[Rfam]
RNA: Group II catalytic intron D1-D4-3
Organism: Marinigracilibium pacificum
RNA sequence: UCAGAAGUGAUUCUGGAACUGAAGUAAGCCAGACUGCGGUGUCUGUACUGACGGACAGAAACUACAUAUAGAGGCCAUUAGGUUGGAUGAGGUAGCACUACCUGUCCCGAUAUCGGGAUCAUACUGAAGUCCAAAGCCCGGAGAGGGAAAUACCGAAGUGGUAGAUGUAGCAGGAAUAGGCACAAGGAUAAUCGU
Numbered sequence: 001u002c003a004g005a006a007g008u009g010a011u012u013c014u015g016g017a018a019c020u021g022a023a024g025u026a027a028g029c030c031a032g033a034c035u036g037c038g039g040u041g042u043c044u045g046u047a048c049u050g051a052c053g054g055a056c057a058g059a060a061a062c063u064a065c066a067u068a069u070a071g072a073g074g075c076c077a078u079u080a081g082g083u084u085g086g087a088u089g090a091g092g093u094a095g096c097a098c099u100a101c102c103u104g105u106c107c108c109g110a111u112a113u114c115g116g117g118a119u120c121a122u123a124c125u126g127a128a129g130u131c132c133a134a135a136g137c138c139c140g141g142a143g144a145g146g147g148a149a150a151u152a153c154c155g156a157a158g159u160g161g162u163a164g165a166u167g168u169a170g171c172a173g174g175a176a177u178a179g180g181c182a183c184a185a186g187g188a189u190a191a192u193c194g195u
Stems, first nucleotide, its partner, number of pairs: 001016006028195002031192001035188001040182006046175001048173003062170006074162003078157002081154003085132004091125004